This 250-nucleotide part of an RNA from Natronomonas pharaonis belongs to the Rfam family "Archaeal large subunit ribosomal RNA".
The base pairs follow the family's consensus structure, which is taken from published work.
Clan: LSU clan.
For this family Rfam cites "Crystal structure of the ribosome at 5.5 A resolution" (Yusupov et al., Science, 2001).
NCBI's taxonomy places the organism under Archaea, Methanobacteriati, Halobacteria, Halobacteriales, Natronomonas pharaonis.

[Rfam]
RNA sequence: UGACGCUUGACAGGAACAACCGUAUAGUACGAGAGGAACUACGGUUGGGUGCCACUGGUUUACCGGUUGUCCGAGAGGGCACUGCCGGGCAGCUACGCACCACAGGGUAACGGCUGAAUGCAUCUAAGCCGGAAACCUACCUGGAAAAGAAGCGUCGCCGAGGUCUCUCGUAGAAGACGAGUUCGAUAGACUUGGGGUGUACGCGUCGAGGCAACGAGACGUUCAGCCCGCGAGUACUAACAGACCGAAG
Number, nucleotide and partner (000 for none) at each position: 001u157002g156003a155004c154005g153006c152007u151008u150009g000010a000011c143012a142013g141014g140015a000016a000017c047018a046019a045020c044021c043022g042023u041024a040025u000026a000027g000028u000029a000030c000031g000032a000033g000034a000035g000036g000037a000038a000039c000040u024041a023042c022043g021044g020045u019046u018047g017048g101049g100050u099051g098052c097053c000054a000055c000056u095057g094058g093059u000060u000061u000062a000063c088064c087065g086066g085067u084068u081069g080070u079071c078072c077073g000074a000075g000076a000077g072078g071079g070080c069081a068082c000083u000084g067085c066086c065087g064088g063089g000090c000091a000092g000093c058094u057095a056096c000097g052098c051099a050100c049101c048102a000103c000104a138105g137106g136107g000108u000109a000110a000111c131112g130113g129114c128115u127116g000117a000118a000119u000120g000121c000122a000123u000124c000125u000126a000127a115128g114129c113130c112131g111132g000133a000134a000135a000136c106137c105138u104139a000140c014141c013142u012143g011144g000145a000146a000147a000148a000149g000150a008151a007152g006153c005154g004155u003156c002157g001158c000159c000160g000161a000162g246163g245164u244165c243166u000167c181168u180169c179170g178171u000172a000173g000174a000175a000176g000177a000178c170179g169180a168181g167182u000183u000184c000185g000186a000187u239188a238189g237190a235191c234192u233193u232194g231195g229196g228197g227198u000199g000200u000201a000202c000203g222204c221205g220206u219207c218208g000209a000210g215211g000212c000213a000214a000215c210216g000217a000218g207219a206220c205221g204222u203223u000224c000225a000226g000227c197228c196229c195230g000231c194232g193233a192234g191235u190236a000237c189238u188239a187240a000241c000242a000243g165244a164245c163246c162247g000248a000249a000250g000